[Rfam]
RNA: mir-8799 microRNA precursor family
RNA sequence: GGGGAAGCCCUGGAUCCUGGGCUGUGUCCCGGCGCCCUGGGCUCCCGGGCCUGCGCCACUGGAAUCGCGCUCCCGGGCCGCGCAGCCCCCU
Numbered sequence: 001g002g003g004g005a006a007g008c009c010c011u012g013g014a015u016c017c018u019g020g021g022c023u024g025u026g027u028c029c030c031g032g033c034g035c036c037c038u039g040g041g042c043u044c045c046c047g048g049g050c051c052u053g054c055g056c057c058a059c060u061g062g063a064a065u066c067g068c069g070c071u072c073c074c075g076g077g078c079c080g081c082g083c084a085g086c087c088c089c090c091u
Base pairs, nucleotide, nucleotide: 001089002088003087004086007083008082009080012079013078016076017075019073020072021071023069024068025067026066027063028062029061031057032056033055034054035053039051041050042049043048